[Rfam]
RNA sequence: AGAUGAAUAUGAUGAAAGCAAAAAUAAAACAUGUCUGAUCAUCAAACACAUUGUGUUUUGGUAUGAUUGAGCAUAUUAUCGCUACGUUCUUUCUGAUUCAUUU
Numbered sequence: 001a002g003a004u005g006a007a008u009a010u011g012a013u014g015a016a017a018g019c020a021a022a023a024a025u026a027a028a029a030c031a032u033g034u035c036u037g038a039u040c041a042u043c044a045a046a047c048a049c050a051u052u053g054u055g056u057u058u059u060g061g062u063a064u065g066a067u068u069g070a071g072c073a074u075a076u077u078a079u080c081g082c083u084a085c086g087u088u089c090u091u092u093c094u095g096a097u098u099c100a101u102u103u
Base pairs, nucleotide, nucleotide: 004100005099006098007097
A member of the RNA family "Small nucleolar RNA R32/R81/Z41" from Cicer arietinum, 103 nucleotides long. The literature on the family includes a 2001 paper in J Mol Biol by Barneche et al., "Identification of 66 box C/D snoRNAs in Arabidopsis thaliana: extensive gene duplications generated multiple isoforms predicting new ribosomal RNA 2'-O-methylation sites". The family's RNA type in Rfam is C/D-box small nucleolar RNA. Gene Ontology terms of the family: RNA processing and nucleolus. The base pairs follow the family's consensus structure, which was predicted with PFOLD. Lineage of the source: Eukaryota > Streptophytina > Gunneridae > fabids > Cicer.